[Rfam]
A member of the RNA family "Guanidine-II riboswitch aptamer (mini-ykkC)" from Aeromonas simiae, 47 nucleotides long. About the family: Simpler in structure and has fewer highly conserved nucleotide positions than the ykkC-yxkD leader. Despite this each of its two stem-loop structures directly bind free guanidine.
RNA sequence: CGCCAGGGACGACCCCGGCGGCCCUUCUGUUCGCCGGGACGACCCGG
Numbered sequence: 001c002g003c004c005a006g007g008g009a010c011g012a013c014c015c016c017g018g019c020g021g022c023c024c025u026u027c028u029g030u031u032c033g034c035c036g037g038g039a040c041g042a043c044c045c046g047g
Base pairs, nucleotide, nucleotide: 001020002019003018004017006015007014008013034047035046036045037044038043